A member of the RNA family "RNase MRP" from Brachionus calyciflorus, 294 nucleotides long. The match comes from Rfam's covariance-model search (111 bits). About the family: RNase MRP is an enzymatically active ribonucleoprotein with two distinct roles in eukaryotes. By type it is a ribozyme.

RNA sequence: UGUUGUCCGCAAAGACUUGCAGUCUGAGCUACUACAAAAUGAACUUGUUUCAUAAUUUAACAAUUUGCUCAGGGGAAAGUCCCCGGAUAUUUUCAAUCGAGGUAGAAAGUACCUGAUUUGAAUUUAUCAAACCUCAUUUUCAAUGCUCAAAUCAAUUCAGCCAUGAUAUUUAGCUGUUGAGUGAAAAUGGGCUCUUAUCGUUUCAAAAAUACAGUAAUGCAAGCUAAGCUGAGUCAUACUGAGAAAGUAUCGCUCGAAUGCUAAGAACUCAAUGGGGCUUAUUUUGCGGGCAAC
Numbered sequence: 001u002g003u004u005g006u007c008c009g010c011a012a013a014g015a016c017u018u019g020c021a022g023u024c025u026g027a028g029c030u031a032c033u034a035c036a037a038a039a040u041g042a043a044c045u046u047g048u049u050u051c052a053u054a055a056u057u058u059a060a061c062a063a064u065u066u067g068c069u070c071a072g073g074g075g076a077a078a079g080u081c082c083c084c085g086g087a088u089a090u091u092u093u094c095a096a097u098c099g100a101g102g103u104a105g106a107a108a109g110u111a112c113c114u115g116a117u118u119u120g121a122a123u124u125u126a127u128c129a130a131a132c133c134u135c136a137u138u139u140u141c142a143a144u145g146c147u148c149a150a151a152u153c154a155a156u157u158c159a160g161c162c163a164u165g166a167u168a169u170u171u172a173g174c175u176g177u178u179g180a181g182u183g184a185a186a187a188u189g190g191g192c193u194c195u196u197a198u199c200g201u202u203u204c205a206a207a208a209a210u211a212c213a214g215u216a217a218u219g220c221a222a223g224c225u226a227a228g229c230u231g232a233g234u235c236a237u238a239c240u241g242a243g244a245a246a247g248u249a250u251c252g253c254u255c256g257a258a259u260g261c262u263a264a265g266a267a268c269u270c271a272a273u274g275g276g277g278c279u280u281a282u283u284u285u286g287c288g289g290g291c292a293a294c
Base pairs, nucleotide, nucleotide: 002294003293004292005291006290007289008288009287010286011285016223017222018221019220020219023073024072025071026070027069028068029067039053040052041051042050043049077280078279079278081277082276083275084274101113102112103111104110114129115128116127117126132191133190138187139186140185146181147180148179149178158176159175160174161173227262228261229260